[Rfam]
Nucleotides: 091
Stems, first nucleotide, its partner, number of pairs: 011036002016031006034077001039084003044080003047075003
Number, partner (000 for none) and nucleotide at each position: 001000a002000u003000u004000a005000u006000c007000a008000a009000g010000g011036g012035c013000a014000a015000a016031c017030u018029c019028a020027c021026u022000g023000a024000a025000a026021a027020g028019u029018g030017a031016g032000g033000a034077c035012g036011c037000a038000a039084a040083g041082c042000c043000a044080c045079c046078g047075g048074u049073c050000u051000a052000c053000g054000c055000g056000c057000a058000c059000c060000a061000u062000a063000u064000g065000u066000g067000c068000u069000g070000a071000g072000a073049g074048a075047c076000a077034g078046c079045g080044g081000a082041g083040c084039u085000g086000c087000a088000u089000c090000a091000c
This 91-nucleotide sequence from Leeia aquatica belongs to the Rfam family "c-di-GMP-I-GGC riboswitch aptamer". The family's consensus secondary structure is taken from published work. The source organism's lineage runs through Bacteria, Pseudomonadati, Pseudomonadota, Betaproteobacteria and Leeia.